Notes
The family of this 115-nucleotide RNA from Trifolium medium is "MIR2593 microRNA precursor family". The family's consensus secondary structure was predicted with RNAalifold. NCBI's taxonomy places the organism under Eukaryota, Streptophytina, Tracheophyta, Euphyllophyta, Trifolium.

[Rfam]
RNA sequence: CUAUAAGCAAGAAAUCACUUUUUAAGUUCAUUGGAAAACUGAUGUAUCUGACCUAUAUUAUAGACCAGAUACAUCAGUUUUCCAAUGAACCUAAAAAGUGGUUUUUUGCUUAUAA
Numbered sequence: 001c002u003a004u005a006a007g008c009a010a011g012a013a014a015u016c017a018c019u020u021u022u023u024a025a026g027u028u029c030a031u032u033g034g035a036a037a038a039c040u041g042a043u044g045u046a047u048c049u050g051a052c053c054u055a056u057a058u059u060a061u062a063g064a065c066c067a068g069a070u071a072c073a074u075c076a077g078u079u080u081u082c083c084a085a086u087g088a089a090c091c092u093a094a095a096a097a098g099u100g101g102u103u104u105u106u107u108g109c110u111u112a113u114a115a
Base pairs, nucleotide, nucleotide: 002114003113004112005111006110007109009107010106011105012104013103015101016100017099018098019097020096021095022094023093024092027089028088029087030086031085032084033083034082035081036080037079038078039077040076041075042074043073044072049067050066